RNA: Group I catalytic intron
RNA sequence: CAUCAUGGGUAAAGCAUUUGCCCCCUGAUUAAAUUAAUCAGGAUAAUUCUACUAUAUGCUGGAAACUCCUAAAAUUUCAGAUACCGAUUAGGUAACAAUUCUGAAAAUGGAACAAUGGACAAUCAGCAGGAAACCUUAAUAGAAAAGUAUUUUUAAUAAUAUACUUUUUGUGAAAGAGGAUUCCCCAGAGACUAAAUGUAGAACAUUCUUACUUUAAUCCCCGAGUGCAAAGCGCGAGGGGGCCCUAAAAGGAGAAAGAGAGAAUGAAGAUAUAGUCCCAUCCAUAAUUAAAGUUAUGG
Numbered sequence: 001c002a003u004c005a006u007g008g009g010u011a012a013a014g015c016a017u018u019u020g021c022c023c024c025c026u027g028a029u030u031a032a033a034u035u036a037a038u039c040a041g042g043a044u045a046a047u048u049c050u051a052c053u054a055u056a057u058g059c060u061g062g063a064a065a066c067u068c069c070u071a072a073a074a075u076u077u078c079a080g081a082u083a084c085c086g087a088u089u090a091g092g093u094a095a096c097a098a099u100u101c102u103g104a105a106a107a108u109g110g111a112a113c114a115a116u117g118g119a120c121a122a123u124c125a126g127c128a129g130g131a132a133a134c135c136u137u138a139a140u141a142g143a144a145a146a147g148u149a150u151u152u153u154u155a156a157u158a159a160u161a162u163a164c165u166u167u168u169u170g171u172g173a174a175a176g177a178g179g180a181u182u183c184c185c186c187a188g189a190g191a192c193u194a195a196a197u198g199u200a201g202a203a204c205a206u207u208c209u210u211a212c213u214u215u216a217a218u219c220c221c222c223g224a225g226u227g228c229a230a231a232g233c234g235c236g237a238g239g240g241g242g243c244c245c246u247a248a249a250a251g252g253a254g255a256a257a258g259a260g261a262g263a264a265u266g267a268a269g270a271u272a273u274a275g276u277c278c279c280a281u282c283c284a285u286a287a288u289u290a291a292a293g294u295u296a297u298g299g
Stems, first nucleotide, its partner, number of pairs: 007023007029036001047203004052198001057128006067119003129184002134179004143171001145169002188278001190277005206264005212258003284297005